[Rfam]
RNA sequence: GUCAGCUUGGCCGAGUGGUUAAGGCGUUAGCCUGCUAAGUUAAUGGGGCAACCCGCGUGAGUUCGAAUCUCACAGCUGACG
Numbered sequence: 001g002u003c004a005g006c007u008u009g010g011c012c013g014a015g016u017g018g019u020u021a022a023g024g025c026g027u028u029a030g031c032c033u034g035c036u037a038a039g040u041u042a043a044u045g046g047g048g049c050a051a052c053c054c055g056c057g058u059g060a061g062u063u064c065g066a067a068u069c070u071c072a073c074a075g076c077u078g079a080c081g
Stems, first nucleotide, its partner, number of pairs: 001080007010025003027043005057073005
This 81-nucleotide RNA sequence from Aphanomyces stellatus belongs to the Rfam family "tRNA". Lineage of the source: Eukaryota > Stramenopiles > Saprolegniomycetes > Verrucalvaceae > Aphanomyces. The family's consensus secondary structure is taken from published work. A search with the family's covariance model found it, with a score of 61 bits. It is annotated as a transfer RNA.